[Rfam]
RNA sequence: UCCGCAGUGCAUGUUUCAGAACGAUAUUGUGGAAGCUCACGCCUUUGAGGCGGGCGGUACGGAUAUAUUGUGCGGUCAUCACCUCGGUCAUCGAGGCGCGGGUCAUCCGGGCGAUAUAGCCCAUGCCGUAUAGGGCGAUGGUCAGUACCGGCAGGAAGAAGUUCUCGAAUGUGGGGUUG
Numbered sequence: 001u002c003c004g005c006a007g008u009g010c011a012u013g014u015u016u017c018a019g020a021a022c023g024a025u026a027u028u029g030u031g032g033a034a035g036c037u038c039a040c041g042c043c044u045u046u047g048a049g050g051c052g053g054g055c056g057g058u059a060c061g062g063a064u065a066u067a068u069u070g071u072g073c074g075g076u077c078a079u080c081a082c083c084u085c086g087g088u089c090a091u092c093g094a095g096g097c098g099c100g101g102g103u104c105a106u107c108c109g110g111g112c113g114a115u116a117u118a119g120c121c122c123a124u125g126c127c128g129u130a131u132a133g134g135g136c137g138a139u140g141g142u143c144a145g146u147a148c149c150g151g152c153a154g155g156a157a158g159a160a161g162u163u164c165u166c167g168a169a170u171g172u173g174g175g176g177u178u179g
Stems, first nucleotide, its partner, number of pairs: 005140002008137003012133001015130001016128001019126001021124001028123002031120001038113001040111001042109001046105003051100002054097001055075001057073006082096005146179002148175002151172003154165004
The family of this 179-nucleotide RNA sequence from Roseobacter sp. SK209-2-6 is "Ruegeria cis52 sRNA". On this family, see Rivers et al., Front Microbiol 2016: "Experimental Identification of Small Non-Coding RNAs in the Model Marine Bacterium Ruegeria pomeroyi DSS-3".